RNA sequence: CACACAUGGGCCGCAAGGCAGGGUGACCCGCAGGUCAUUUCCCGCCAUCCGGUGUUUCUGAAUGUUCAGAGAUAUUUUGGCCCAUGGAGGACGAACCGGUAAAGGAGAGAGAC
Numbered sequence: 001c002a003c004a005c006a007u008g009g010g011c012c013g014c015a016a017g018g019c020a021g022g023g024u025g026a027c028c029c030g031c032a033g034g035u036c037a038u039u040u041c042c043c044g045c046c047a048u049c050c051g052g053u054g055u056u057u058c059u060g061a062a063u064g065u066u067c068a069g070a071g072a073u074a075u076u077u078u079g080g081c082c083c084a085u086g087g088a089g090g091a092c093g094a095a096c097c098g099g100u101a102a103a104g105g106a107g108a109g110a111g112a113c
Stems, first nucleotide, its partner, number of pairs: 001089001003087001005086007017046003022042001054073006
RNA: rpsB sRNA